[Rfam]
RNA: mir-460 microRNA precursor family
Organism: Semnornis frantzii
RNA sequence: UUCUGAGGUGUCCUCAUUGUGCAUGCUGUGUGUAUCUGGCGUGUACACAGCGCAUGCAAUGUGGACAUCAUGGAG
Numbered sequence: 001u002u003c004u005g006a007g008g009u010g011u012c013c014u015c016a017u018u019g020u021g022c023a024u025g026c027u028g029u030g031u032g033u034a035u036c037u038g039g040c041g042u043g044u045a046c047a048c049a050g051c052g053c054a055u056g057c058a059a060u061g062u063g064g065a066c067a068u069c070a071u072g073g074a075g
Stems, first nucleotide, its partner, number of pairs: 012064002015061007024052001026050006